[Rfam]
RNA sequence: GGAGUCGGCCGGACAGUCGCCGCUGAAGCAUGUCUUCGGGGGAGGAAAGUCCGGGCUCCACAGGGCAGAGUGCCAGGUAACGCCUGGGCGGCGCGAGCCGACGGAAAGUGCAGCAGAGAGUAGACCGCCAAAGCAGUCUGACUGCCGGUAAGGGUGAAAGGGUGCGGUAAGAGCGCACCGCGCGACUGGCAACAGCUCGUGGCAUGGUAAACCCCACUCGGAGCAAGACCAAAUAGGAACCCUGAGGUGUGGCCCGCACUGGGUUCGGGUAGGUUGCUUGAGGGACGUGGUGACGCGUCUCCUAGAGGAAUGACUGUCCUCGACAGAACCCGGCUUACAGGCCGACUCCCUCC
Numbered sequence: 001g002g003a004g005u006c007g008g009c010c011g012g013a014c015a016g017u018c019g020c021c022g023c024u025g026a027a028g029c030a031u032g033u034c035u036u037c038g039g040g041g042g043a044g045g046a047a048a049g050u051c052c053g054g055g056c057u058c059c060a061c062a063g064g065g066c067a068g069a070g071u072g073c074c075a076g077g078u079a080a081c082g083c084c085u086g087g088g089c090g091g092c093g094c095g096a097g098c099c100g101a102c103g104g105a106a107a108g109u110g111c112a113g114c115a116g117a118g119a120g121u122a123g124a125c126c127g128c129c130a131a132a133g134c135a136g137u138c139u140g141a142c143u144g145c146c147g148g149u150a151a152g153g154g155u156g157a158a159a160g161g162g163u164g165c166g167g168u169a170a171g172a173g174c175g176c177a178c179c180g181c182g183c184g185a186c187u188g189g190c191a192a193c194a195g196c197u198c199g200u201g202g203c204a205u206g207g208u209a210a211a212c213c214c215c216a217c218u219c220g221g222a223g224c225a226a227g228a229c230c231a232a233a234u235a236g237g238a239a240c241c242c243u244g245a246g247g248u249g250u251g252g253c254c255c256g257c258a259c260u261g262g263g264u265u266c267g268g269g270u271a272g273g274u275u276g277c278u279u280g281a282g283g284g285a286c287g288u289g290g291u292g293a294c295g296c297g298u299c300u301c302c303u304a305g306a307g308g309a310a311u312g313a314c315u316g317u318c319c320u321c322g323a324c325a326g327a328a329c330c331c332g333g334c335u336u337a338c339a340g341g342c343c344g345a346c347u348c349c350c351u352c353c
Stems, first nucleotide, its partner, number of pairs: 001349010011338001012318007020042002023039006047336003051333005056223004063255004068219005073087005088102001089100004103214002108212002110208002125153002127149003133145005161179006180203001181201005186195003227275004237266006246260005282301008
Shown here is a 353-nucleotide sequence from Larsenimonas rhizosphaerae, a member of the family "Bacterial RNase P class A". The source organism's lineage runs through Bacteria, Pseudomonadati, Oceanospirillales, Halomonadaceae and Larsenimonas. Rfam classes the family as a ribozyme.